The family of this 210-nucleotide RNA sequence from Pseudomonas pohangensis is "sucA-II RNA".
The organism belongs to Pseudomonas, within Bacteria.
The family's RNA type in Rfam is cis-regulatory element.
[Rfam]
RNA sequence: CCUUGGUGCUGGUAACAAACCGGUGCCAAGUAACUGACAUGAGCCGUAGCCCACAAAGCCGCAGCUCGAAUUGAAUUAGACGACCAGCAGGGGAUCCGGGCUGGUGCCCGGACUAUCUGCGGGACCCGUAGUGGCUUACCAAGUCGCUGCAUUGGACUGGUAAAAUGCAACGGAUUCGCGCGGUAGUGCCCCCCUUCAAGAGGGUGACCU
Numbered sequence: 001c002c003u004u005g006g007u008g009c010u011g012g013u014a015a016c017a018a019a020c021c022g023g024u025g026c027c028a029a030g031u032a033a034c035u036g037a038c039a040u041g042a043g044c045c046g047u048a049g050c051c052c053a054c055a056a057a058g059c060c061g062c063a064g065c066u067c068g069a070a071u072u073g074a075a076u077u078a079g080a081c082g083a084c085c086a087g088c089a090g091g092g093g094a095u096c097c098g099g100g101c102u103g104g105u106g107c108c109c110g111g112a113c114u115a116u117c118u119g120c121g122g123g124a125c126c127c128g129u130a131g132u133g134g135c136u137u138a139c140c141a142a143g144u145c146g147c148u149g150c151a152u153u154g155g156a157c158u159g160g161u162a163a164a165a166u167g168c169a170a171c172g173g174a175u176u177c178g179c180g181c182g183g184u185a186g187u188g189c190c191c192c193c194c195u196u197c198a199a200g201a202g203g204g205u206g207a208c209c210u
Stems, first nucleotide, its partner, number of pairs: 002030012041067004046062002049059002089195005094187001095112006113186005119181003123177002126173002131168003136163004142158004